CyVA-1 RNA: an 83-nucleotide sequence.

[Rfam]
RNA sequence: AUAGUACUAGACAGUUAAAUUGUUUAGAGCCUUUAAAGUAUACACUAUAAAAGUGACGAACCAUUAUAGUGUACUGAUAUUGU
Numbered sequence: 001a002u003a004g005u006a007c008u009a010g011a012c013a014g015u016u017a018a019a020u021u022g023u024u025u026a027g028a029g030c031c032u033u034u035a036a037a038g039u040a041u042a043c044a045c046u047a048u049a050a051a052a053g054u055g056a057c058g059a060a061c062c063a064u065u066a067u068a069g070u071g072u073a074c075u076g077a078u079a080u081u082g083u
Stems, first nucleotide, its partner, number of pairs: 001083006009032002012029001037075007
Dot-bracket structure: ((((((..((.(................).))....(((((((.........................)))))))..))))))
From the family's description: Cyanobacteria, Acidobacteria (1 example), Verrucomicrobia (1 example). It is annotated as a small RNA.